[Rfam]
RNA sequence: GGAGCGCGAUGGCCCGCCCACCUCUACGUGGUGCGCUCUAGAAACACCAGUUUGGUGGCUGAGAGGCGGGC
Dot-bracket structure: (((((((............(((.......)))))))))).....(((((...)))))..............
Numbered sequence: 001g002g003a004g005c006g007c008g009a010u011g012g013c014c015c016g017c018c019c020a021c022c023u024c025u026a027c028g029u030g031g032u033g034c035g036c037u038c039u040a041g042a043a044a045c046a047c048c049a050g051u052u053u054g055g056u057g058g059c060u061g062a063g064a065g066g067c068g069g070g071c
Stems, first nucleotide, its partner, number of pairs: 001039007020032003045057005
HDV ribozyme from F. prausnitzii: a 71-nucleotide RNA from Gonapodya prolifera.
The family's consensus secondary structure is taken from published work.
NCBI's taxonomy places the organism under Eukaryota, Monoblepharomycota, Monoblepharidomycetes, Monoblepharidales, Gonapodya prolifera.
A search with the family's covariance model found it, with a score of 44 bits.